[Rfam]
RNA sequence: AUUAAAAGGGGUUAUUAAGAAUAACAUAGCAAAUUUAUUAAAAAGGAAGACUAAGUUCUAAAAACACAGGUUUAUUCUACUAAGUUUUGAAUUUAAUCAUUUGAAAUUUAUGCCUUCGGGCUAGAAUAAAGACAUUAUUUUAAUGUACCUAACUGUGUAAAUCCUAAGGGAAACCUUUAUAUUAUUACUUCCUGAAGCAAAACAUUGUAGUAAGGAAAGGAAAGGAAAUCAACCGAGACUCUGAAAGUAAUGGUGAGUGAAAUCAGAAUAGCCUAUAAAAUAAAAUUCUUAUAUAAACGUAUAAGAGUAAAUUGAAAUCUUAUGGAAUAUAGAUUAAUAUUUUCUAAUUAAUAUUAGAAAAGUAACCAAAGAAGGUGAAAGUCCUGUAAAUUUAAUAUUUUAUUGAAAAAAAGUACGAUGAGAGUUAACUUGUCGGAAAAUAGGGGAACCAUCCUCUAAGGCUAAGUAUAAUAAAUUUAGCGAUAGUGAAUAGUACUGUGAAGGAAAUGGUGAAAACACGUUGUAAACAAAUGAAAUAGUCUUGAAUUAGUAACUCUAGAAG
Numbered sequence: 001a002u003u004a005a006a007a008g009g010g011g012u013u014a015u016u017a018a019g020a021a022u023a024a025c026a027u028a029g030c031a032a033a034u035u036u037a038u039u040a041a042a043a044a045g046g047a048a049g050a051c052u053a054a055g056u057u058c059u060a061a062a063a064a065c066a067c068a069g070g071u072u073u074a075u076u077c078u079a080c081u082a083a084g085u086u087u088u089g090a091a092u093u094u095a096a097u098c099a100u101u102u103g104a105a106a107u108u109u110a111u112g113c114c115u116u117c118g119g120g121c122u123a124g125a126a127u128a129a130a131g132a133c134a135u136u137a138u139u140u141u142a143a144u145g146u147a148c149c150u151a152a153c154u155g156u157g158u159a160a161a162u163c164c165u166a167a168g169g170g171a172a173a174c175c176u177u178u179a180u181a182u183u184a185u186u187a188c189u190u191c192c193u194g195a196a197g198c199a200a201a202a203c204a205u206u207g208u209a210g211u212a213a214g215g216a217a218a219g220g221a222a223a224g225g226a227a228a229u230c231a232a233c234c235g236a237g238a239c240u241c242u243g244a245a246a247g248u249a250a251u252g253g254u255g256a257g258u259g260a261a262a263u264c265a266g267a268a269u270a271g272c273c274u275a276u277a278a279a280a281u282a283a284a285a286u287u288c289u290u291a292u293a294u295a296a297a298c299g300u301a302u303a304a305g306a307g308u309a310a311a312u313u314g315a316a317a318u319c320u321u322a323u324g325g326a327a328u329a330u331a332g333a334u335u336a337a338u339a340u341u342u343u344c345u346a347a348u349u350a351a352u353a354u355u356a357g358a359a360a361a362g363u364a365a366c367c368a369a370a371g372a373a374g375g376u377g378a379a380a381g382u383c384c385u386g387u388a389a390a391u392u393u394a395a396u397a398u399u400u401u402a403u404u405g406a407a408a409a410a411a412a413g414u415a416c417g418a419u420g421a422g423a424g425u426u427a428a429c430u431u432g433u434c435g436g437a438a439a440a441u442a443g444g445g446g447a448a449c450c451a452u453c454c455u456c457u458a459a460g461g462c463u464a465a466g467u468a469u470a471a472u473a474a475a476u477u478u479a480g481c482g483a484u485a486g487u488g489a490a491u492a493g494u495a496c497u498g499u500g501a502a503g504g505a506a507a508u509g510g511u512g513a514a515a516a517c518a519c520g521u522u523g524u525a526a527a528c529a530a531a532u533g534a535a536a537u538a539g540u541c542u543u544g545a546a547u548u549a550g551u552a553a554c555u556c557u558a559g560a561a562g
Stems, first nucleotide, its partner, number of pairs: 008557010023542001025509002029481002031478007038470001044165004048059003064158006167176003188219001189217005199206002229236002239466001240267005250258002270463004280323004285318002328402002338397001345395001347391003352364004367371001373385003416435007442457005496503002520528003
Dot-bracket structure: .......((((((((((.....(.((..((((((((((.....(((((((......)))....((((((...................................................................................))))))...)))).(((....)))...........((((((.....((....))......))))).).........((....))..((((((.....((.....))....)))))..((((......((((.((..............................)).))))....((........(......(.(((..((((.....))))..(...).(((.......)))...)))...).)...)).............(((((((......)))))))......(((((......)))))..))))..)...).))))))).))..............((....))....))..........(((...))).............).....)))))))))).....
The family of this 562-nucleotide part of an RNA is "Bacterial large subunit ribosomal RNA". On this family, see Yusupov et al., Science 2001: "Crystal structure of the ribosome at 5.5 A resolution". A search with the family's covariance model found it, with a score of 1166 bits. Its family is annotated with ribosome and structural constituent of ribosome in the Gene Ontology.